[Rfam]
RNA sequence: AUAAAAACACAAUACCCGGUAAAUCUGAAAAUAUCAGAAACAGGAUAACGUUGAAUAAAUUAUUUUAGGAUUAAGCUCAAUUAAAGGGUGAAGUAAAAACGUAGAUAUCCUGGAGUAAUCUUAUAAAAAAGCCGAUAUUAAUAUCGGCUUUUUUAUUUCAU
Number, nucleotide and partner (000 for none) at each position: 001a000002u000003a000004a000005a000006a000007a000008c000009a000010c000011a000012a000013u000014a000015c000016c104017c000018g102019g000020u000021a000022a000023a000024u070025c069026u068027g000028a066029a065030a064031a063032u062033a061034u059035c000036a000037g000038a000039a000040a056041c000042a000043g000044g052045a051046u050047a000048a000049c000050g046051u045052u044053g000054a000055a000056u040057a000058a000059a034060u000061u033062a032063u031064u030065u029066u028067a000068g026069g025070a024071u000072u000073a000074a000075g000076c000077u000078c000079a000080a000081u000082u000083a000084a000085a000086g000087g000088g000089u000090g000091a000092a000093g000094u000095a000096a000097a000098a000099a000100c000101g000102u018103a000104g016105a000106u000107a000108u000109c000110c000111u000112g121113g120114a000115g000116u000117a000118a000119u000120c113121u112122u000123a000124u000125a000126a000127a000128a000129a150130a149131g148132c147133c146134g145135a144136u143137a142138u000139u000140a000141a000142u137143a136144u135145c134146g133147g132148c131149u130150u129151u000152u000153u000154u000155a000156u000157u000158u000159c000160a000161u000